A member of the RNA family "THF (Tetrahydrofolate) riboswitch aptamer" from Lentihominibacter faecis, 91 nucleotides long.
RNA sequence: CGUAGAGUAGGUAUUGUGCGUGAAGUGUCAUAAGAUGGGAUGUUGCUUAUGAACGAAAGCUUUGCUGCGGUGCAAUAUCGCGUCCGCUACU
Numbered sequence: 001c002g003u004a005g006a007g008u009a010g011g012u013a014u015u016g017u018g019c020g021u022g023a024a025g026u027g028u029c030a031u032a033a034g035a036u037g038g039g040a041u042g043u044u045g046c047u048u049a050u051g052a053a054c055g056a057a058a059g060c061u062u063u064g065c066u067g068c069g070g071u072g073c074a075a076u077a078u079c080g081c082g083u084c085c086g087c088u089a090c091u
Stems, first nucleotide, its partner, number of pairs: 002090004010079009019069003025054002028052007038085005058066003
Rfam describes the family as follows. Tetrahydrofolate (THF) riboswitch was first reported for Ames et al. as an RNA motif in 5' untranslated (5'-UTR)regions of folate transport and biosynthesis genes in Firmicutes genomes. A reference for the family is Ames et al. (2010), "A eubacterial riboswitch class that senses the coenzyme tetrahydrofolate", Chem Biol.